[Rfam]
The record is a 329-nucleotide RNA sequence from Burkholderiales bacterium PBB5, which matches "Bacterial RNase P class A" in Rfam.
The family's consensus secondary structure is taken from published work.

RNA sequence: GAAGUGCGCCAGACCGCCGCUGGGACAUCCGCCGAAAGGCCGUCCUGGAGGAAGGUCCGGACUGCACAGGACAGCGUAGGAGCUAACGACUCUCCACCGCGAGGUGAGGAUCAGAGCAACAGAGACGAGCCGGUUUGGUCCGGGUGAAACGGGCAAUCUCUACGCGCAGCAACACCGAAUAGGCACACGUUGAUCCGGUCCGGGGAGUGUGCGGGUAGGUGGCACCGAGCCGGGUGGGCGACCCCCGGCCCAGACGAAUGGCGGUCACGGCCACACCGGCGCAAGCCGGUGCGGCCGCACAGAAUCCGGCCUAUCGGCGCGCUUCACAC
Dot-bracket structure: ((((((((((((((((((.(((((((...............)))))))....[[[.[[[[[((((...[[[[.(((((((((.......))))(((((....)))).)((...((((............((((......)))).........))..)))))))))))))...((((......((((((.....(((.]]]])))..)))))).....)))).......((((((.((....))))))))..........)))))))......................................]]]]]]]].).))))))))))....
Numbered sequence: 001g002a003a004g005u006g007c008g009c010c011a012g013a014c015c016g017c018c019g020c021u022g023g024g025a026c027a028u029c030c031g032c033c034g035a036a037a038g039g040c041c042g043u044c045c046u047g048g049a050g051g052a053a054g055g056u057c058c059g060g061a062c063u064g065c066a067c068a069g070g071a072c073a074g075c076g077u078a079g080g081a082g083c084u085a086a087c088g089a090c091u092c093u094c095c096a097c098c099g100c101g102a103g104g105u106g107a108g109g110a111u112c113a114g115a116g117c118a119a120c121a122g123a124g125a126c127g128a129g130c131c132g133g134u135u136u137g138g139u140c141c142g143g144g145u146g147a148a149a150c151g152g153g154c155a156a157u158c159u160c161u162a163c164g165c166g167c168a169g170c171a172a173c174a175c176c177g178a179a180u181a182g183g184c185a186c187a188c189g190u191u192g193a194u195c196c197g198g199u200c201c202g203g204g205g206a207g208u209g210u211g212c213g214g215g216u217a218g219g220u221g222g223c224a225c226c227g228a229g230c231c232g233g234g235u236g237g238g239c240g241a242c243c244c245c246c247g248g249c250c251c252a253g254a255c256g257a258a259u260g261g262c263g264g265u266c267a268c269g270g271c272c273a274c275a276c277c278g279g280c281g282c283a284a285g286c287c288g289g290u291g292c293g294g295c296c297g298c299a300c301a302g303a304a305u306c307c308g309g310c311c312u313a314u315c316g317g318c319g320c321g322c323u324u325c326a327c328a329c
Stems, first nucleotide, its partner, number of pairs: 001325010011314001012266007020048007053312003057309005062169004069201004074165005079093004094108001095106004109160002114158002116154002130143004173221004183212006194204003229249006236243002
Lineage of the source: Bacteria > Pseudomonadati > Pseudomonadota > Betaproteobacteria > Burkholderiales. It is annotated as a ribozyme.